[Rfam]
tRNA: a 73-nucleotide RNA sequence from Pylaiella littoralis.
It is one of the family's seed sequences.
The source organism's lineage runs through Eukaryota, Stramenopiles, Ochrophyta, Ectocarpales and Pylaiella.

RNA sequence: GGGGGUAUAGCUCAGUUGGUAGAGCGUUGCUUUUGCAUAGCAGACGUCAGCAGUUCGAGUCUGCUUAUCUCCA
Numbered sequence: 001g002g003g004g005g006u007a008u009a010g011c012u013c014a015g016u017u018g019g020u021a022g023a024g025c026g027u028u029g030c031u032u033u034u035g036c037a038u039a040g041c042a043g044a045c046g047u048c049a050g051c052a053g054u055u056c057g058a059g060u061c062u063g064c065u066u067a068u069c070u071c072c073a
Stems, first nucleotide, its partner, number of pairs: 001072007010025004027043005049065005

Transfer RNA (tRNA) molecules are approximately 80 nucleotides in length.